[Rfam]
RNA sequence: GGUGGCUGGGAAGGCAAGAUGUCGGCAUAGCUGAUUGAUAUAAUAUACGGCUGUGUCACAUCGAGCCAGCUCAAUCCGCC
Numbered sequence: 001g002g003u004g005g006c007u008g009g010g011a012a013g014g015c016a017a018g019a020u021g022u023c024g025g026c027a028u029a030g031c032u033g034a035u036u037g038a039u040a041u042a043a044u045a046u047a048c049g050g051c052u053g054u055g056u057c058a059c060a061u062c063g064a065g066c067c068a069g070c071u072c073a074a075u076c077c078g079c080c
Stems, first nucleotide, its partner, number of pairs: 005075001007073004013067003018062004024057008
The family of this 80-nucleotide RNA from Brenthis ino is "mir-31 microRNA precursor family". The base pairs follow the family's consensus structure, which was predicted with RNAalifold. A reference for the family is Aravin et al. (2003), "The small RNA profile during Drosophila melanogaster development", Dev Cell. A search with the family's covariance model found it, with a score of 63 bits. Gene Ontology terms of the family: RISC complex and gene silencing by miRNA. Lineage of the source: Eukaryota > Pterygota > Endopterygota > Amphiesmenoptera > Brenthis. The family has 75 seed sequences and 1,181 matches in Rfam 15.1.